A member of the RNA family "mir-9058 microRNA precursor family" from Equus caballus, 97 nucleotides long. Pairs were carried over by alignment from the consensus structure, which was predicted with RNAalifold. Gene Ontology terms of the family: miRNA-mediated post-transcriptional gene silencing and RISC complex. Taxonomically the source falls in Equus (Eukaryota, Amniota, Perissodactyla, Equidae).

RNA sequence: GUGGCUGCCGGAUGGGUGCUUCCUACUAGUGCUGUGCAGAGGCUUUCGCUGAGGCUGCUGUGAGCCUGUAGAGUUUCCCCCUAGGCUGCAGAGCCAG
Numbered sequence: 001g002u003g004g005c006u007g008c009c010g011g012a013u014g015g016g017u018g019c020u021u022c023c024u025a026c027u028a029g030u031g032c033u034g035u036g037c038a039g040a041g042g043c044u045u046u047c048g049c050u051g052a053g054g055c056u057g058c059u060g061u062g063a064g065c066c067u068g069u070a071g072a073g074u075u076u077c078c079c080c081c082u083a084g085g086c087u088g089c090a091g092a093g094c095c096a097g
Base pairs, nucleotide, nucleotide: 002096003095004094005093006092007086008085009084010082011081014080015079016078018076021073023071024070025069026068028067029066031065032064033063036061037060038059039058041056042055043054044053045052046051